[Rfam]
RNA sequence: CGCCUAACCCUUAUGGAAGUCAUAAGGUAUGGCAUAAAAACACGGUUCAGGUAUAUCAAACUCUCAGUCAGAGCACCUGAACCGUCAUAUCCGAAAGGAUAUGGGUGGCGCAAGCCAUC
Numbered sequence: 001c002g003c004c005u006a007a008c009c010c011u012u013a014u015g016g017a018a019g020u021c022a023u024a025a026g027g028u029a030u031g032g033c034a035u036a037a038a039a040a041c042a043c044g045g046u047u048c049a050g051g052u053a054u055a056u057c058a059a060a061c062u063c064u065c066a067g068u069c070a071g072a073g074c075a076c077c078u079g080a081a082c083c084g085u086c087a088u089a090u091c092c093g094a095a096a097g098g099a100u101a102u103g104g105g106u107g108g109c110g111c112a113a114g115c116c117a118u119c
Stems, first nucleotide, its partner, number of pairs: 002033003009027007043084010056072002060068003086103007104119006
RNA: LOOT RNA